[Rfam]
The family of this 102-nucleotide RNA from Fonticella tunisiensis is "Purine riboswitch aptamer". From the family's description: Riboswitches are metabolite binding domains within certain messenger RNAs that serve as precision sensors for their corresponding targets. The family's consensus secondary structure is taken from published work.
RNA sequence: UUUUAAUGAAACCACGCCAUCCAUAUAAUCCUGAUAAUAUGGUUCAGGAGUAUCUACGGGGGAGCCGCAAACUCUCCGGCUAUGGGUGAGCCCAGGUUGGGA
Numbered sequence: 001u002u003u004u005a006a007u008g009a010a011a012c013c014a015c016g017c018c019a020u021c022c023a024u025a026u027a028a029u030c031c032u033g034a035u036a037a038u039a040u041g042g043u044u045c046a047g048g049a050g051u052a053u054c055u056a057c058g059g060g061g062g063a064g065c066c067g068c069a070a071a072c073u074c075u076c077c078g079g080c081u082a083u084g085g086g087u088g089a090g091c092c093c094a095g096g097u098u099g100g101g102a
Stems, first nucleotide, its partner, number of pairs: 018088008029049006059077006